The record is a 145-nucleotide RNA from Vagococcus fessus, which matches "glmS glucosamine-6-phosphate activated ribozyme aptamer" in Rfam. The family's consensus secondary structure is taken from published work. It is annotated as a riboswitch. A search with the family's covariance model found it, with a score of 103 bits.
RNA sequence: AUUUUGUUUAUAGCGCCAGACCUAUCUAAUAGGUGACGAGGAAGAGUUUAUCGAAAAUUCGGCGGAUGACUCUAGGGACUGCACCCUAAAGGUUUAAUUAAAAACUAGUUGUAAGGCUAGAACAAAGGUUAAACCACGCAGAUAG
Numbered sequence: 001a002u003u004u005u006g007u008u009u010a011u012a013g014c015g016c017c018a019g020a021c022c023u024a025u026c027u028a029a030u031a032g033g034u035g036a037c038g039a040g041g042a043a044g045a046g047u048u049u050a051u052c053g054a055a056a057a058u059u060c061g062g063c064g065g066a067u068g069a070c071u072c073u074a075g076g077g078a079c080u081g082c083a084c085c086c087u088a089a090a091g092g093u094u095u096a097a098u099u100a101a102a103a104a105c106u107a108g109u110u111g112u113a114a115g116g117c118u119a120g121a122a123c124a125a126a127g128g129u130u131a132a133a134c135c136a137c138g139c140a141g142a143u144a145g
Stems, first nucleotide, its partner, number of pairs: 020034006043073005051062004074087004091135007105120006